[Rfam]
RNA sequence: UGAAAUGCGACGAUAGGAAACAAAGCCCUGGCGAACUUCCAGAGAACCGGCGGUCGGUGCGAGCCGGCAGAACGGCAGGGUCAUAGCUCCUCCUUGAGCAGAACGGCUGAACGGGCGGCCGGCAGGCGGGCAGUCUGCGGUCACUAAUUAAGCUGUUACGGUAUCUCCCGUUAUCGAGAGGCACAUUGUUUGAUGUGUACGAGUGGACAGUCUUUUUGCGGCUGUCAAUGAGAGUGGUACCGUGGAGUUUCAAGCUUCAUCUCUUAA
Numbered sequence: 001u002g003a004a005a006u007g008c009g010a011c012g013a014u015a016g017g018a019a020a021c022a023a024a025g026c027c028c029u030g031g032c033g034a035a036c037u038u039c040c041a042g043a044g045a046a047c048c049g050g051c052g053g054u055c056g057g058u059g060c061g062a063g064c065c066g067g068c069a070g071a072a073c074g075g076c077a078g079g080g081u082c083a084u085a086g087c088u089c090c091u092c093c094u095u096g097a098g099c100a101g102a103a104c105g106g107c108u109g110a111a112c113g114g115g116c117g118g119c120c121g122g123c124a125g126g127c128g129g130g131c132a133g134u135c136u137g138c139g140g141u142c143a144c145u146a147a148u149u150a151a152g153c154u155g156u157u158a159c160g161g162u163a164u165c166u167c168c169c170g171u172u173a174u175c176g177a178g179a180g181g182c183a184c185a186u187u188g189u190u191u192g193a194u195g196u197g198u199a200c201g202a203g204u205g206g207a208c209a210g211u212c213u214u215u216u217u218g219c220g221g222c223u224g225u226c227a228a229u230g231a232g233a234g235u236g237g238u239a240c241c242g243u244g245g246a247g248u249u250u251c252a253a254g255c256u257u258c259a260u261c262u263c264u265u266a267a
Base pairs, nucleotide, nucleotide: 007099008098015094016093017092018091025081026080027079028078029077036070037069047067048066049065050064051063102157103156104155105154106153107152108151159170160169161168206226207225208224209223210222211221212220231264232263233262234261242260243259244258245257246256247255248254
RNA: T-box leader